The record is a 116-nucleotide RNA sequence from Puma concolor, which matches "Small nucleolar RNA SNORA12" in Rfam.
The base pairs follow the family's consensus structure, which was predicted with RNAalifold.
NCBI's taxonomy places the organism under Eukaryota, Bilateria, Tetrapoda, Boreoeutheria, Puma.
U108 belongs to the H/ACA family of snoRNAs.
The family's RNA type in Rfam is H/ACA-box small nucleolar RNA.
RNA sequence: UUUCAUGGCGAUGGUUUUCUUUCUGGCACACUUGUUACGUUUUCAAAGGAGUCCGACUCUGCCAUAUGUACUGGGUAGGAGCUAGAAAAGGUUGGCGAAGAGCGGCUCCCACAUGC
Number, nucleotide and partner (000 for none) at each position: 001u000002u000003u000004c000005a065006u064007g063008g062009c061010g000011a000012u000013g060014g059015u000016u000017u000018u000019c000020u000021u000022u000023c000024u000025g053026g052027c051028a000029c049030a000031c000032u046033u045034g044035u000036u000037a000038c000039g000040u000041u000042u000043u000044c034045a033046a032047a000048g000049g029050a000051g027052u026053c025054c000055g000056a000057c000058u000059c014060u013061g009062c008063c007064a006065u005066a000067u000068g000069u000070a000071c000072u000073g000074g000075g000076u000077a000078g109079g108080a107081g106082c105083u104084a093085g092086a000087a000088a000089a000090g000091g000092u085093u084094g000095g000096c000097g000098a000099a000100g000101a000102g000103c000104g083105g082106c081107u080108c079109c078110c000111a000112c000113a000114u000115g000116c000